[Rfam]
RNA sequence: AGGCUAUUUCAAAGAGGGCUUGUAGGAUUCUGCAACCCAGAGCUCUUAACACUUGGACCAAAGAUUGAAAUUCUCCAUGGGAUGUCAUAGUCACUCAAUAGAAGUGCUAUGUUUUCCAGUGGAGAUGCAAUA
Numbered sequence: 001a002g003g004c005u006a007u008u009u010c011a012a013a014g015a016g017g018g019c020u021u022g023u024a025g026g027a028u029u030c031u032g033c034a035a036c037c038c039a040g041a042g043c044u045c046u047u048a049a050c051a052c053u054u055g056g057a058c059c060a061a062a063g064a065u066u067g068a069a070a071u072u073c074u075c076c077a078u079g080g081g082a083u084g085u086c087a088u089a090g091u092c093a094c095u096c097a098a099u100a101g102a103a104g105u106g107c108u109a110u111g112u113u114u115u116c117c118a119g120u121g122g123a124g125a126u127g128c129a130a131u132a
Base pairs, nucleotide, nucleotide: 002059003058005056014047015046016045017044018043019042020041021040023039026037072125073124074123075122076121080117081116082115087110088109089108090107092106093105094104095103
The family of this 132-nucleotide RNA from Dipodomys ordii is "Small nucleolar RNA SNORA25". ACA25 is a member of the H/ACA class of snoRNA that guide the sites of modification of uridines to pseudouridines. It is annotated as an H/ACA-box small nucleolar RNA.